SAM riboswitch aptamer (S box leader): a 112-nucleotide sequence from Desulfotomaculum nigrificans. The base pairs follow the family's consensus structure, which is taken from published work. A reference for the family is Grundy and Henkin (1998), "The S box regulon: a new global transcription termination control system for methionine and cysteine biosynthesis genes in gram-positive bacteria", Mol Microbiol. Taxonomically the source falls in Desulfotomaculum nigrificans (Bacteria, Bacillati, Clostridia, Eubacteriales).
[Rfam]
RNA sequence: CUCUUAUCCCGAGAGGUGGAGGGACUGGCCCAAUGAAACCCGGCAACCAUCCGGCAUGACCCCGGACAGGUGCUAAUUCCUGCAGAAGAAAUUUUCUUCUGACAGAUAAGAG
Numbered sequence: 001c002u003c004u005u006a007u008c009c010c011g012a013g014a015g016g017u018g019g020a021g022g023g024a025c026u027g028g029c030c031c032a033a034u035g036a037a038a039c040c041c042g043g044c045a046a047c048c049a050u051c052c053g054g055c056a057u058g059a060c061c062c063c064g065g066a067c068a069g070g071u072g073c074u075a076a077u078u079c080c081u082g083c084a085g086a087a088g089a090a091a092u093u094u095u096c097u098u099c100u101g102a103c104a105g106a107u108a109a110g111a112g
Base pairs, nucleotide, nucleotide: 001112002111003110004109005108006107007106008105013041015040016039017038021031022030023029025082027080028079042074043073044072045071047070048069050066051065052064053063078104083101084100085099086098087097088096